[Rfam]
RNA sequence: UUUCCUGAGGAGUGCUGCAACGGGAUUUUGCCGGGUUCGCGCCCGCCGCCCCGCUAGGCUCAGGAAACGCUUUUUGAUUCAACGGCGCUCAUCAUCU
Numbered sequence: 001u002u003u004c005c006u007g008a009g010g011a012g013u014g015c016u017g018c019a020a021c022g023g024g025a026u027u028u029u030g031c032c033g034g035g036u037u038c039g040c041g042c043c044c045g046c047c048g049c050c051c052c053g054c055u056a057g058g059c060u061c062a063g064g065a066a067a068c069g070c071u072u073u074u075u076g077a078u079u080c081a082a083c084g085g086c087g088c089u090c091a092u093c094a095u096c097u
Stems, first nucleotide, its partner, number of pairs: 002066007021053004026048001
RNA: SAH (S-adenosyl-L-homocysteine) riboswitch aptamer
Organism: Paralcaligenes ureilyticus